[Rfam]
RNA sequence: GCUGACUUCGGAAGCGAUGAAACCUGAUCCCGUAUUCGGGCGCUUGGGACAGGUGGAGCUAGUAGCGCGACCGGCCGAGAGUUCC
Numbered sequence: 001g002c003u004g005a006c007u008u009c010g011g012a013a014g015c016g017a018u019g020a021a022a023c024c025u026g027a028u029c030c031c032g033u034a035u036u037c038g039g040g041c042g043c044u045u046g047g048g049a050c051a052g053g054u055g056g057a058g059c060u061a062g063u064a065g066c067g068c069g070a071c072c073g074g075c076c077g078a079g080a081g082u083u084c085c
Stems, first nucleotide, its partner, number of pairs: 001085001004082001007079005013060003022054005028049003038072002040068005
A member of the RNA family "c-di-GMP-II-GAG riboswitch aptamer", 85 nucleotides long. The base pairs follow the family's consensus structure, which is taken from published work. For this family Rfam cites "Bioinformatic analysis of riboswitch structures uncovers variant classes with altered ligand specificity" (Weinberg et al., Proc Natl Acad Sci U S A, 2017). It is one of the family's seed sequences.